[Rfam]
RNA sequence: AGACCUCUGAUCAGGAAAGACUACCCGCUGAGUUUAAGCAUAUCACUAAGCGGAGGAGAAGAAACUAACCAGGAUUUCCCUAGUAACGGCGAGCGAACCGGAAAGAGCCCAGCUUGAAAAUCGAGGUGCUUCGCACCUCGAAUUGUAGUCUGGAGAAGCGUCCUCUGCAGCGUGCCGGCCCCAAGUUCCCUGGAAUGGGAUGCCCAAGAGGGUGACAGCCCCGUCGAGGCCGGUUUUUUAUUGCUGCUCCACGAGGCGCGAUCUGCGAGUCGGGCUGUUUGGGAAUGCAGCCCUAAGUGGGAGGUAAAUUCCUUCUAAGGCUAAAUAUUGGCAAGAGACCGAUAGCGAACAAGUACCGCGAGGGAAAGAUGAAAAGGACUUUGAAAAGAGAGUUAAACAGUGCUUGAAAUUGCUGGGAGGGAAG
Numbered sequence: 001a002g003a004c005c006u007c008u009g010a011u012c013a014g015g016a017a018a019g020a021c022u023a024c025c026c027g028c029u030g031a032g033u034u035u036a037a038g039c040a041u042a043u044c045a046c047u048a049a050g051c052g053g054a055g056g057a058g059a060a061g062a063a064a065c066u067a068a069c070c071a072g073g074a075u076u077u078c079c080c081u082a083g084u085a086a087c088g089g090c091g092a093g094c095g096a097a098c099c100g101g102a103a104a105g106a107g108c109c110c111a112g113c114u115u116g117a118a119a120a121u122c123g124a125g126g127u128g129c130u131u132c133g134c135a136c137c138u139c140g141a142a143u144u145g146u147a148g149u150c151u152g153g154a155g156a157a158g159c160g161u162c163c164u165c166u167g168c169a170g171c172g173u174g175c176c177g178g179c180c181c182c183a184a185g186u187u188c189c190c191u192g193g194a195a196u197g198g199g200a201u202g203c204c205c206a207a208g209a210g211g212g213u214g215a216c217a218g219c220c221c222c223g224u225c226g227a228g229g230c231c232g233g234u235u236u237u238u239u240a241u242u243g244c245u246g247c248u249c250c251a252c253g254a255g256g257c258g259c260g261a262u263c264u265g266c267g268a269g270u271c272g273g274g275c276u277g278u279u280u281g282g283g284a285a286u287g288c289a290g291c292c293c294u295a296a297g298u299g300g301g302a303g304g305u306a307a308a309u310u311c312c313u314u315c316u317a318a319g320g321c322u323a324a325a326u327a328u329u330g331g332c333a334a335g336a337g338a339c340c341g342a343u344a345g346c347g348a349a350c351a352a353g354u355a356c357c358g359c360g361a362g363g364g365a366a367a368g369a370u371g372a373a374a375a376g377g378a379c380u381u382u383g384a385a386a387a388g389a390g391a392g393u394u395a396a397a398c399a400g401u402g403c404u405u406g407a408a409a410u411u412g413c414u415g416g417g418a419g420g421g422a423a424g
Stems, first nucleotide, its partner, number of pairs: 024055001025053005035042002065072002076103004087093001106322004112150001114148003118144002121141007155263002158259003162256004167247006175233006185201001187200004204208001211221002272293007299316005356363002379390004
RNA: Eukaryotic large subunit ribosomal RNA, nucleotides 1 to 424
Organism: Physcomitrium patens